[Rfam]
Shown here is a 73-nucleotide sequence from Dromaius novaehollandiae, a member of the family "tRNA".

RNA sequence: GUUUCUGUAGUGUAGUGGUUGUCACAUUUGCCUGACAUGUGGAAGGUCCCUGGUUUGAAACCAGGCAGAAACA
Dot-bracket structure: (((((((..(((..........))).(((((.......))))).....(((((.......)))))))))))).
Notes: The family's consensus secondary structure is taken from published work. By type it is a transfer RNA.